RNA sequence: AAGCCAAAGGAUGAUUAUGGACUUCAAUAUCUCACGACGGUCGUCUGAGGCACCAAAGAGUGUCAAUAUUGAUGUGAUAAACCAUGAAUCUGAUGGUU
Numbered sequence: 001a002a003g004c005c006a007a008a009g010g011a012u013g014a015u016u017a018u019g020g021a022c023u024u025c026a027a028u029a030u031c032u033c034a035c036g037a038c039g040g041u042c043g044u045c046u047g048a049g050g051c052a053c054c055a056a057a058g059a060g061u062g063u064c065a066a067u068a069u070u071g072a073u074g075u076g077a078u079a080a081a082c083c084a085u086g087a088a089u090c091u092g093a094u095g096g097u098u
Stems, first nucleotide, its partner, number of pairs: 001098002004095001051062003
A member of the RNA family "Small nucleolar RNA Z161/Z228" from Phtheirospermum japonicum, 98 nucleotides long. The literature on the family includes a 2003 paper in Nucleic Acids Res by Chen et al., "The high diversity of snoRNAs in plants: identification and comparative study of 120 snoRNA genes from Oryza sativa". Pairs were carried over by alignment from the consensus structure, which was predicted with PFOLD. NCBI's taxonomy places the organism under Eukaryota, Embryophyta, Euphyllophyta, Magnoliopsida, Phtheirospermum. By type it is a C/D-box small nucleolar RNA.